[Rfam]
RNA sequence: GUUGCCGGUGCGGCCCGACGUCAACUACCCAAGAACCAGGGGGAAGAAAGAACCCUUCCCCGCCCCUCCAGCCUCCCCGUCACCCACAAGGGUGGGUUUCGCCAACUGGGCUGGAUUUCGGGCGGGUUGACGGGCAUAUGCUCGCCGCAACAACCGCACACAGACGUCGGCCCCCGGCGGGAGUAGCAAUCCCGGUCGAGGGCCUGACCACCGAGGAAGGCAUCAACUUCCUG
Numbered sequence: 001g002u003u004g005c006c007g008g009u010g011c012g013g014c015c016c017g018a019c020g021u022c023a024a025c026u027a028c029c030c031a032a033g034a035a036c037c038a039g040g041g042g043g044a045a046g047a048a049a050g051a052a053c054c055c056u057u058c059c060c061c062g063c064c065c066c067u068c069c070a071g072c073c074u075c076c077c078c079g080u081c082a083c084c085c086a087c088a089a090g091g092g093u094g095g096g097u098u099u100c101g102c103c104a105a106c107u108g109g110g111c112u113g114g115a116u117u118u119c120g121g122g123c124g125g126g127u128u129g130a131c132g133g134g135c136a137u138a139u140g141c142u143c144g145c146c147g148c149a150a151c152a153a154c155c156g157c158a159c160a161c162a163g164a165c166g167u168c169g170g171c172c173c174c175c176g177g178c179g180g181g182a183g184u185a186g187c188a189a190u191c192c193c194g195g196u197c198g199a200g201g202g203c204c205u206g207a208c209c210a211c212c213g214a215g216g217a218a219g220g221c222a223u224c225a226a227c228u229u230c231c232u233g
Stems, first nucleotide, its partner, number of pairs: 007212004080095006110146001112144003169204005175198002179193004215231005
Rfam assigns this 233-nucleotide RNA sequence from Streptomyces sp. NBRC 110611 to the family "Streptomyces sRNA 4677". From the family's description: Located in the intergenic region between anti-sigma factor SCO4677 gene and a putative regulatory protein gene SCO4676. scr4677 expression requires the SCO4677 activity and scr4677 sRNA itself seem to affect the levels of the SCO4676-associated transcripts. Rfam classes the family as a small RNA. The literature on the family includes a 2014 paper in PLoS One by Hindra et al., "Complex intra-operonic dynamics mediated by a small RNA in Streptomyces coelicolor". Pairs were carried over by alignment from the consensus structure. It scores 127 bits against the family's covariance model.